[Rfam]
RNA sequence: GUAAAGAAAAAAUAUUCUUUUCGUAUAACUGCAGGGAUAUGGCCUGCGAGUCUCUACCAAGCUUCCCGUAAAGAGCUUGACUACGAAAAAUCAUCCUAUCUCA
Numbered sequence: 001g002u003a004a005a006g007a008a009a010a011a012a013u014a015u016u017c018u019u020u021u022c023g024u025a026u027a028a029c030u031g032c033a034g035g036g037a038u039a040u041g042g043c044c045u046g047c048g049a050g051u052c053u054c055u056a057c058c059a060a061g062c063u064u065c066c067c068g069u070a071a072a073g074a075g076c077u078u079g080a081c082u083a084c085g086a087a088a089a090a091u092c093a094u095c096c097u098a099u100c101u102c103a
Base pairs, nucleotide, nucleotide: 018089019088020087021086022085023084024083025082030048031047032046033045034044035043058079059078060077061076062075063074064073
RNA: Purine riboswitch aptamer